[Rfam]
RNA: Betaproteobacteria toxic small RNA
Organism: Noviherbaspirillum humi
Nucleotides: 058
Base pairs, nucleotide, nucleotide: 008025009024010023011022012021029051030050031049032048033047034046035045036044
Number, partner (000 for none) and nucleotide at each position: 001000u002000g003000u004000c005000u006000c007000c008025u009024c010023c011022a012021a013000u014000c015000c016000u017000c018000u019000g020000a021012u022011u023010g024009g025008a026000u027000u028000u029051c030050c031049c032048g033047c034046c035045g036044u037000u038000g039000u040000c041000c042000c043000a044036a045035c046034g047033g048032c049031g050030g051029g052000u053000u054000u055000u056000u057000u058000u